[Rfam]
Nucleotides: 177
Base pairs, nucleotide, nucleotide: 001177002176003175004174005173006172010073011072012071013070019063020062021061022060023059024058025057026056027055028054029053030052031051032050033049034047035046036045037044038043078135079134080133081132082131083130084129085128088125089124090123091122095118096117097115098114099113100112101111102110103109104108139170140169141168142167143166144165145164150160151159152158153157
Number, partner (000 for none) and nucleotide at each position: 001177u002176g003175a004174u005173a006172c007000a008000a009000g010073a011072a012071u013070a014000g015000a016000g017000a018000a019063g020062a021061a022060g023059a024058a025057g026056u027055g028054c029053c030052c031051g032050c033049u034047g035046c036045g037044a038043g039000c040000u041000c042000g043038c044037u045036c046035g047034u048000a049033a050032g051031c052030g053029g054028g055027c056026a057025c058024u059023u060022c061021u062020u063019u064000c065000u066000u067000c068000u069000c070013u071012a072011u073010u074000c075000g076000c077000c078135a079134a080133c081132a082131a083130u084129a085128c086000g087000c088125a089124c090123g091122c092000g093000c094000c095118g096117c097115c098114a099113u100112u101111u102110u103109u104108c105000g106000a107000a108104g109103a110102a111101a112100a113099a114098u115097g116000a117096g118095c119000a120000g121000a122091g123090c124089g125088u126000g127000c128085g129084u130083a131082u132081u133080g134079u135078u136000g137000u138000a139170g140169g141168a142167c143166u144165g145164c146000g147000a148000g149000a150160g151159u152158g153157c154000g155000a156000a157153g158152c159151a160150c161000g162000g163000a164145g165144c166143a167142g168141u169140c170139c171000g172006g173005u174004a175003u176002c177001a